[Rfam]
RNA sequence: UAGCCUGAGAUGAUGGCUCAGUUUCAUGUCUCUUCUCUGACAGUUCUGUCUGGAGAUGGUUUCUGCAUUAUUGAUCUGAUCAGGCUA
Dot-bracket structure: (((((.............................................................................)))))
A member of the RNA family "Small nucleolar RNA SNORD111" from Chinchilla lanigera, 87 nucleotides long. Rfam 15.1 lists 894 matches to the family in 541 species. The source organism's lineage runs through Eukaryota, Dipnotetrapodomorpha, Mammalia, Hystricomorpha and Chinchilla. The literature on the family includes a 2002 paper in Mol Cell Biol by Galardi et al., "Purified box C/D snoRNPs are able to reproduce site-specific 2'-O-methylation of target RNA in vitro".